Shown here is a 355-nucleotide sequence from Phreatobacter cathodiphilus, a member of the family "Alphaproteobacteria transfer-messenger RNA". The family's RNA type in Rfam is non-coding RNA gene. Rfam links the family to the GO term RNA catabolic process. A reference for the family is Laslett et al. (2002), "BRUCE: a program for the detection of transfer-messenger RNA genes in nucleotide sequences", Nucleic Acids Res. Clan: tRNA clan. Bacterial tmRNA, also known as 10Sa RNA or SsrA, is named for its dual tRNA and mRNA-like properties. Its role is to liberate the mRNA from a stalled ribosome. It scores 309 bits against the family's covariance model. The source organism's lineage runs through Bacteria, Pseudomonadati, Hyphomicrobiales, Phreatobacteraceae and Phreatobacter.
[Rfam]
RNA sequence: GCCCUUUCGCUGAGGCGCGGGCUCCCCUAUAUUCAGCGGGCCGGGGCAACCCGGCUAUGGCGAUAAACGGCCAUCGUAAUAAGCCUUUCGGACCCGGGGGCAGUACCCGGCGCCUCCACCAGAAGGACCCUUCUAGGGUGUUUCUGAUGGGGGCGAAACAGGAUCGACGAGGGUGUAAAGGGUGGGCUUUUGCUCGGCAUGGUUCCGCCGUUAUCGGGCCGUCUCAAUAGUUGCCAACGACAACUAUGCUCCGGUGGCCGUUGCCGCGUAAUGCGGUGAUGGUACCGAAAUCAAGUCCUUGCGGGUAGCACUGUAAGGCGGGGUUCGGAGGCACCUGGCAACAGAAGCCUCCACU
Numbered sequence: 001g002c003c004c005u006u007u008c009g010c011u012g013a014g015g016c017g018c019g020g021g022c023u024c025c026c027c028u029a030u031a032u033u034c035a036g037c038g039g040g041c042c043g044g045g046g047c048a049a050c051c052c053g054g055c056u057a058u059g060g061c062g063a064u065a066a067a068c069g070g071c072c073a074u075c076g077u078a079a080u081a082a083g084c085c086u087u088u089c090g091g092a093c094c095c096g097g098g099g100g101c102a103g104u105a106c107c108c109g110g111c112g113c114c115u116c117c118a119c120c121a122g123a124a125g126g127a128c129c130c131u132u133c134u135a136g137g138g139u140g141u142u143u144c145u146g147a148u149g150g151g152g153g154c155g156a157a158a159c160a161g162g163a164u165c166g167a168c169g170a171g172g173g174u175g176u177a178a179a180g181g182g183u184g185g186g187c188u189u190u191u192g193c194u195c196g197g198c199a200u201g202g203u204u205c206c207g208c209c210g211u212u213a214u215c216g217g218g219c220c221g222u223c224u225c226a227a228u229a230g231u232u233g234c235c236a237a238c239g240a241c242a243a244c245u246a247u248g249c250u251c252c253g254g255u256g257g258c259c260g261u262u263g264c265c266g267c268g269u270a271a272u273g274c275g276g277u278g279a280u281g282g283u284a285c286c287g288a289a290a291u292c293a294a295g296u297c298c299u300u301g302c303g304g305g306u307a308g309c310a311c312u313g314u315a316a317g318g319c320g321g322g323g324u325u326c327g328g329a330g331g332c333a334c335c336u337g338g339c340a341a342c343a344g345a346a347g348c349c350u351c352c353a354c355u
Base pairs, nucleotide, nucleotide: 040055041054042053043052044051059194060193061192062191063190069187071185072184073183074182075181084173085172086171088170089169090168094110095109096108097107098106111155112154113153114152115151116150117149195210196209197208198207200221201220202219204218205217206216321336322335323334324333327352328351329350330349331348332347